[Rfam]
RNA sequence: UUAACGCAAUUUUGUAUGCAGUUGGAACAGCACCCCUAGCGGCAAACGUACGCAAACGUUCCAACUCCAUACAAAAUCUAGUUA
Numbered sequence: 001u002u003a004a005c006g007c008a009a010u011u012u013u014g015u016a017u018g019c020a021g022u023u024g025g026a027a028c029a030g031c032a033c034c035c036c037u038a039g040c041g042g043c044a045a046a047c048g049u050a051c052g053c054a055a056a057c058g059u060u061c062c063a064a065c066u067c068c069a070u071a072c073a074a075a076a077u078c079u080a081g082u083u084a
Stems, first nucleotide, its partner, number of pairs: 009077008018068001020066009034052001039047001